Overview
Purine riboswitch aptamer: a 100-nucleotide sequence from Halobacillus sp. BAB-2008. About the family: Riboswitches are metabolite binding domains within certain messenger RNAs that serve as precision sensors for their corresponding targets.
[Rfam]
RNA sequence: GGUACGAUUGCUGAAAGUGUUCGUAUAAACCUGAUAAUUGGUUCGGGUGUUUCUACAGGGAACCGUAAAUUCCCGGCUACGCAACGCAGAGGGGGAUCUC
Dot-bracket structure: .................((((((((...((((((........)))))).........(((((.......)))))...)))).))))..............